[Rfam]
Shown here is a 269-nucleotide RNA from Clostridiaceae bacterium OM08-6BH, a member of the family "T-box leader". The base pairs follow the family's consensus structure, which is taken from published work. It scores 120 bits against the family's covariance model.
RNA sequence: GUAAAUGCGUUGAUGAGGAAUAGUACAUUCAGACUUGAUUUCAGAGAGCUGUCGGCUGGUGUGAGACAGCAGAGAGAAUGUUUGGAACUCGCCUCGGAGCGGCUGUCCAAAAUCUUCUAUAUAAUAAGAAGAAAGUAGACACAGACGGAAUCCCUGCCGUUACGAAGGGAAGGAUAUAAGAAAGUAAUUUCCGUAUCCGGUAAGUGUGCGAAUCAUUUCGCAAAAUGAGAGUGGUACCGCGUAGAACAGUUUAGUCCUUCGUCUCUUGG
Numbered sequence: 001g002u003a004a005a006u007g008c009g010u011u012g013a014u015g016a017g018g019a020a021u022a023g024u025a026c027a028u029u030c031a032g033a034c035u036u037g038a039u040u041u042c043a044g045a046g047a048g049c050u051g052u053c054g055g056c057u058g059g060u061g062u063g064a065g066a067c068a069g070c071a072g073a074g075a076g077a078a079u080g081u082u083u084g085g086a087a088c089u090c091g092c093c094u095c096g097g098a099g100c101g102g103c104u105g106u107c108c109a110a111a112a113u114c115u116u117c118u119a120u121a122u123a124a125u126a127a128g129a130a131g132a133a134a135g136u137a138g139a140c141a142c143a144g145a146c147g148g149a150a151u152c153c154c155u156g157c158c159g160u161u162a163c164g165a166a167g168g169g170a171a172g173g174a175u176a177u178a179a180g181a182a183a184g185u186a187a188u189u190u191c192c193g194u195a196u197c198c199g200g201u202a203a204g205u206g207u208g209c210g211a212a213u214c215a216u217u218u219c220g221c222a223a224a225a226u227g228a229g230a231g232u233g234g235u236a237c238c239g240c241g242u243a244g245a246a247c248a249g250u251u252u253a254g255u256c257c258u259u260c261g262u263c264u265c266u267u268g269g
Stems, first nucleotide, its partner, number of pairs: 007100002015095004026084002030080002039071001048070006103144004146159003207222006228266004239262003243258001